[Rfam]
Description
Rfam assigns this 55-nucleotide sequence from Burkholderiales bacterium JOSHI_001 to the family "nhaA-I RNA". The sequence is in the family's curated seed alignment. About the family: Acidobacteria, Alphaproteobacteria, Betaproteobacteria and Gammaproteobacteria, Verrucomicrobia, cand. division NC10.

RNA sequence: GGGUGCUCCGCCAAGCCAUGGCGAGGCAGGUUCCAGCGAAGGUCGGGCCGCCUCG
Numbered sequence: 001g002g003g004u005g006c007u008c009c010g011c012c013a014a015g016c017c018a019u020g021g022c023g024a025g026g027c028a029g030g031u032u033c034c035a036g037c038g039a040a041g042g043u044c045g046g047g048c049c050g051c052c053u054c055g
Stems, first nucleotide, its partner, number of pairs: 005027003009023004037055003041052003